[Rfam]
Shown here is a 99-nucleotide RNA sequence from Solimonas marina, a member of the family "Glycine riboswitch aptamer". Lineage of the source: Bacteria > Pseudomonadati > Gammaproteobacteria > Nevskiaceae > Solimonas. The match comes from Rfam's covariance-model search (58 bits).

RNA sequence: UACUGUUUCGCAGGAGAGAGAAAUACCGGUGAAGUUCCGGUUUUCCGCCGAAGGCGCAAUCUCCCAUAAACGCUCAGGCACCCGUACUGCGAAAUUGGU
Numbered sequence: 001u002a003c004u005g006u007u008u009c010g011c012a013g014g015a016g017a018g019a020g021a022a023a024u025a026c027c028g029g030u031g032a033a034g035u036u037c038c039g040g041u042u043u044u045c046c047g048c049c050g051a052a053g054g055c056g057c058a059a060u061c062u063c064c065c066a067u068a069a070a071c072g073c074u075c076a077g078g079c080a081c082c083c084g085u086a087c088u089g090c091g092a093a094a095u096u097g098g099u
Base pairs, nucleotide, nucleotide: 006094007093008092009091010090011089012088013087020045021044022043023042047079048078049077050075051074054073055072056071060066